Shown here is a 91-nucleotide RNA from Streptococcus sp. DD10, a member of the family "THF (Tetrahydrofolate) riboswitch aptamer". Rfam 15.1 lists 747 matches to the family in 747 species.

RNA sequence: AACAGAGUAGACAGAAGGCGUUAAGUGUUCGCAAAUGGGAAGUUGUUGCGAAACGAAGUCUAGCACGCGACCGACUGUUGCAUCCGCUGUU
Dot-bracket structure: (((((....(((((..(((((...((.(((((((...[[[.[...)))))))))...((.....))))).))..))))).].]]].)))))
Numbered sequence: 001a002a003c004a005g006a007g008u009a010g011a012c013a014g015a016a017g018g019c020g021u022u023a024a025g026u027g028u029u030c031g032c033a034a035a036u037g038g039g040a041a042g043u044u045g046u047u048g049c050g051a052a053a054c055g056a057a058g059u060c061u062a063g064c065a066c067g068c069g070a071c072c073g074a075c076u077g078u079u080g081c082a083u084c085c086g087c088u089g090u091u
Stems, first nucleotide, its partner, number of pairs: 001091005010079005017072002019069003025054002028052007038085003042081001058066002